[Rfam]
RNA sequence: ACACGGGAAAGGAGGUGGUCCGAAGAAUGAAUUCUUCAAGGACGCGUGAGGUGGCUGCCCGCUAGCAGCCCAGCAUCAUCGGGGGUGAGAUUCCCCCGAGGCUGCUGACGAAUUCCUAGCAGCUACCCGACCCGCAGACGAUCCGGUCAUCACGUCCACCGGAGCGGGCCCCGAUCCGGGGUCCACGUCUGCGGGUCGUUCCCA
Numbered sequence: 001a002c003a004c005g006g007g008a009a010a011g012g013a014g015g016u017g018g019u020c021c022g023a024a025g026a027a028u029g030a031a032u033u034c035u036u037c038a039a040g041g042a043c044g045c046g047u048g049a050g051g052u053g054g055c056u057g058c059c060c061g062c063u064a065g066c067a068g069c070c071c072a073g074c075a076u077c078a079u080c081g082g083g084g085g086u087g088a089g090a091u092u093c094c095c096c097c098g099a100g101g102c103u104g105c106u107g108a109c110g111a112a113u114u115c116c117u118a119g120c121a122g123c124u125a126c127c128c129g130a131c132c133c134g135c136a137g138a139c140g141a142u143c144c145g146g147u148c149a150u151c152a153c154g155u156c157c158a159c160c161g162g163a164g165c166g167g168g169c170c171c172c173g174a175u176c177c178g179g180g181g182u183c184c185a186c187g188u189c190u191g192c193g194g195g196u197c198g199u200u201c202c203c204a
Base pairs, nucleotide, nucleotide: 014059015058016057017056018055019054060110061109063107064106065105066104068102069101070100073097128198129197130196131195132194133193134192135191136190137189138188139187140186142163143162144161145160146159147158
RNA: Actinobacteria sRNA Ms_IGR-5